[Rfam]
Background
mir-9/mir-79 microRNA precursor family: an 81-nucleotide RNA sequence from Chironomus riparius. The base pairs follow the family's consensus structure, which was predicted with RNAalifold. NCBI's taxonomy places the organism under Eukaryota, Neoptera, Endopterygota, Nematocera, Chironomus. On this family, see Lagos-Quintana et al., Science 2001: "Identification of novel genes coding for small expressed RNAs".
RNA sequence: UUAGAGUUGUCUUUGGUUAUCUAGCUGUAUGAGUGAACUUUUUAAAACGUCAUAAAGCUAGCUUACCGAAGUUAAUGACUG
Numbered sequence: 001u002u003a004g005a006g007u008u009g010u011c012u013u014u015g016g017u018u019a020u021c022u023a024g025c026u027g028u029a030u031g032a033g034u035g036a037a038c039u040u041u042u043u044a045a046a047a048c049g050u051c052a053u054a055a056a057g058c059u060a061g062c063u064u065a066c067c068g069a070a071g072u073u074a075a076u077g078a079c080u081g
Stems, first nucleotide, its partner, number of pairs: 001081001007075003011071007019063001021061006028054005